RNA sequence: CUCUUAUCAAGAGUGGUGGAGGGACUGGCCCGAUGAAACCCGGCAACCAUAACUGUUUAUCAGAUCGAUAACAGCUAAAGGUGCUAAAUCCUGCGGAAUUUCCGGAAGAUGAGAG
Numbered sequence: 001c002u003c004u005u006a007u008c009a010a011g012a013g014u015g016g017u018g019g020a021g022g023g024a025c026u027g028g029c030c031c032g033a034u035g036a037a038a039c040c041c042g043g044c045a046a047c048c049a050u051a052a053c054u055g056u057u058u059a060u061c062a063g064a065u066c067g068a069u070a071a072c073a074g075c076u077a078a079a080g081g082u083g084c085u086a087a088a089u090c091c092u093g094c095g096g097a098a099u100u101u102c103c104g105g106a107a108g109a110u111g112a113g114a115g
Stems, first nucleotide, its partner, number of pairs: 001115008013041001015040003021031003025093001027091002042085004047081002050077002053074005089107001094104004
RNA: SAM riboswitch aptamer (S box leader)
Organism: Tindallia californiensis